[Rfam]
RNA sequence: UCUUUAGUGAAGGAGAAAGGGGCUAGGUGGUGAGACACAUACCCGAGACUCAACGCUACGUGGCUCGUCUUCUGCCUCAGA
Numbered sequence: 001u002c003u004u005u006a007g008u009g010a011a012g013g014a015g016a017a018a019g020g021g022g023c024u025a026g027g028u029g030g031u032g033a034g035a036c037a038c039a040u041a042c043c044c045g046a047g048a049c050u051c052a053a054c055g056c057u058a059c060g061u062g063g064c065u066c067g068u069c070u071u072c073u074g075c076c077u078c079a080g081a
Stems, first nucleotide, its partner, number of pairs: 001081003006077002009075001011073006020066006027059006
Rfam assigns this 81-nucleotide RNA from Rattus norvegicus to the family "mir-7578 microRNA precursor family". NCBI's taxonomy places the organism under Eukaryota, Opisthokonta, Teleostomi, Sarcopterygii, Rattus. Rfam links the family to the GO terms miRNA-mediated post-transcriptional gene silencing, negative regulation of inflammatory response and positive regulation of mRNA catabolic process.